Description:
The family of this 80-nucleotide RNA from Limnobaculum parvum is "RybB RNA". The source organism's lineage runs through Bacteria, Pseudomonadati, Pseudomonadota, Budviciaceae and Limnobaculum. From the family's description: This ncRNA was identified in a large scale screen of E. coli. The function of this short RNA is unknown. The exact 5' and 3' ends of this RNA are uncertain.
RNA sequence: ACUGCUUUACUUUAGAACUCCCUCAUUGAGGUUGACCCGAUAAGUCGUUUUUACGUUUCAUACUUAUCGGGUUUUUUAUU
Numbered sequence: 001a002c003u004g005c006u007u008u009a010c011u012u013u014a015g016a017a018c019u020c021c022c023u024c025a026u027u028g029a030g031g032u033u034g035a036c037c038c039g040a041u042a043a044g045u046c047g048u049u050u051u052u053a054c055g056u057u058u059c060a061u062a063c064u065u066a067u068c069g070g071g072u073u074u075u076u077u078a079u080u
Stems, first nucleotide, its partner, number of pairs: 034073012